Description: This 251-nucleotide RNA from an Olavius algarvensis Delta 1 endosymbiont belongs to the Rfam family "Group II catalytic intron D1-D4-6". The match comes from Rfam's covariance-model search (105 bits). Its family is annotated with Group II intron splicing in the Gene Ontology. On this family, see Bonen and Vogel, Trends Genet 2001: "The ins and outs of group II introns". The source organism's lineage runs through Bacteria, delta/epsilon subdivisions and Deltaproteobacteria.

RNA sequence: CGAGUCCCACCUGAUUAAAGGUUAGCCACCAGAUCAGUAGUGAAGUCCGCGGGCAAACUCCGAGAGGAGAGUCCGAAGCUGGAUGGAUCAAGGAUACAGGCUUUGUAUUGAGCCCCGAAAAAUGUAUAGUUGUGGUCAUUAGGAUAAUCCCGCUUUUUUUGGGAGAAAGCCGACGGCGUUAAGCGGUCGGAAGGCAGCAGCCCCGCAUACGUUAUGGCAAGCAUGAGGGGCACCACCGGGGUCUUAGACCA
Numbered sequence: 001c002g003a004g005u006c007c008c009a010c011c012u013g014a015u016u017a018a019a020g021g022u023u024a025g026c027c028a029c030c031a032g033a034u035c036a037g038u039a040g041u042g043a044a045g046u047c048c049g050c051g052g053g054c055a056a057a058c059u060c061c062g063a064g065a066g067g068a069g070a071g072u073c074c075g076a077a078g079c080u081g082g083a084u085g086g087a088u089c090a091a092g093g094a095u096a097c098a099g100g101c102u103u104u105g106u107a108u109u110g111a112g113c114c115c116c117g118a119a120a121a122a123u124g125u126a127u128a129g130u131u132g133u134g135g136u137c138a139u140u141a142g143g144a145u146a147a148u149c150c151c152g153c154u155u156u157u158u159u160u161g162g163g164a165g166a167a168a169g170c171c172g173a174c175g176g177c178g179u180u181a182a183g184c185g186g187u188c189g190g191a192a193g194g195c196a197g198c199a200g201c202c203c204c205g206c207a208u209a210c211g212u213u214a215u216g217g218c219a220a221g222c223a224u225g226a227g228g229g230g231c232a233c234c235a236c237c238g239g240g241g242u243c244u245u246a247g248a249c250c251a
Base pairs, nucleotide, nucleotide: 012036013035014034015033016032020030021029022028023220025218026217038090040088041087045084046083047082049079050075051074052073053072054071058069059068060067061066110243112242113241114240115239116238117237132236133235134234135233136232169195170194171193174189175188176187177186200231201230202229203228204227206225207224208223210221